[Rfam]
RNA: U1 spliceosomal RNA
Organism: Gossypium mustelinum
RNA sequence: UCACUUACCUGGACGGGGCAUAUGGGCGAUCAAUGAGGCCCAUGGCCUAGGUUGGCGACUCACAUUGCACUUGGUGAGGGCGCCAGCUUAACAUCUCCCCAAGUGGGAGAGUGUACGUUAUAAUUUAUGAGAGAGGGGGCCUGCGUACGCGCGGUCCCUAC
Numbered sequence: 001u002c003a004c005u006u007a008c009c010u011g012g013a014c015g016g017g018g019c020a021u022a023u024g025g026g027c028g029a030u031c032a033a034u035g036a037g038g039c040c041c042a043u044g045g046c047c048u049a050g051g052u053u054g055g056c057g058a059c060u061c062a063c064a065u066u067g068c069a070c071u072u073g074g075u076g077a078g079g080g081c082g083c084c085a086g087c088u089u090a091a092c093a094u095c096u097c098c099c100c101a102a103g104u105g106g107g108a109g110a111g112u113g114u115a116c117g118u119u120a121u122a123a124u125u126u127a128u129g130a131g132a133g134a135g136g137g138g139g140c141c142u143g144c145g146u147a148c149g150c151g152c153g154g155u156c157c158c159u160a161c
Base pairs, nucleotide, nucleotide: 012119013118014117015116016048017047018046019045023042024041025040026039027038049089050088051087053086055083056082057081059079060078062075063074091114092113093112094110095109096108098106099105135159136158137157138156142153143152144151145150